[Rfam]
RNA: BsrC
Organism: Bacillus cereus
Nucleotides: 085
Base pairs, nucleotide, nucleotide: 033066034065035064038061039060040057041056042055043054044053046051
Number, partner (000 for none) and nucleotide at each position: 001000a002000u003000g004000a005000c006000u007000u008000a009000g010000a011000u012000a013000g014000u015000a016000u017000a018000a019000g020000c021000c022000c023000u024000a025000c026000c027000u028000c029000u030000c031000u032000u033066u034065c035064a036000u037000c038061c039060u040057u041056a042055c043054g044053g045000c046051u047000c048000c049000u050000u051046g052000u053044c054043c055042g056041u057040g058000c059000c060039a061038g062000u063000g064035u065034g066033a067000a068000u069000c070000a071000g072000g073000a074000u075000u076000g077000u078000a079000a080000a081000a082000a083000u084000c085000a